[Rfam]
RNA sequence: AUUGAAAAGGGCAAACCCGUCCGAAAGGCGGGGACGCAAAGCCAUGGGCCUAAAUUGAUUAUGUUAUUUUGGAACAAUUCCAGGAUAUCGUAACCGAUAUGGUCGCCAGGUUGCCGGUU
Numbered sequence: 001a002u003u004g005a006a007a008a009g010g011g012c013a014a015a016c017c018c019g020u021c022c023g024a025a026a027g028g029c030g031g032g033g034a035c036g037c038a039a040a041g042c043c044a045u046g047g048g049c050c051u052a053a054a055u056u057g058a059u060u061a062u063g064u065u066a067u068u069u070u071g072g073a074a075c076a077a078u079u080c081c082a083g084g085a086u087a088u089c090g091u092a093a094c095c096g097a098u099a100u101g102g103u104c105g106c107c108a109g110g111u112u113g114c115c116g117g118u119u
Base pairs, nucleotide, nucleotide: 001119003116004115011037012036016032017031018030019029021028022027035105040112041111042110043109045108046107047106048103049102050101
Notes
The family of this 119-nucleotide RNA sequence from Paenibacillus thalictri is "c-di-GMP-I-GGC riboswitch aptamer". NCBI's taxonomy places the organism under Bacteria, Bacillati, Bacillota, Paenibacillaceae, Paenibacillus. Pairs were carried over by alignment from the consensus structure, which is taken from published work. The match comes from Rfam's covariance-model search (62 bits).